[Rfam]
RNA: c-di-GMP-I riboswitch aptamer
Organism: Paenibacillus naphthalenovorans
RNA sequence: CGAGAUAAUUGGCAAAACCAUUGAAAAAUGGUGACGCAAAGCUAUAGGGGCUACCUUGAGCUAUUCGCUUCAACAUGCCAGCCAGUUGCCGAA
Numbered sequence: 001c002g003a004g005a006u007a008a009u010u011g012g013c014a015a016a017a018c019c020a021u022u023g024a025a026a027a028a029u030g031g032u033g034a035c036g037c038a039a040a041g042c043u044a045u046a047g048g049g050g051c052u053a054c055c056u057u058g059a060g061c062u063a064u065u066c067g068c069u070u071c072a073a074c075a076u077g078c079c080a081g082c083c084a085g086u087u088g089c090c091g092a093a
Stems, first nucleotide, its partner, number of pairs: 012037002017032006040087004047083002049079003056073004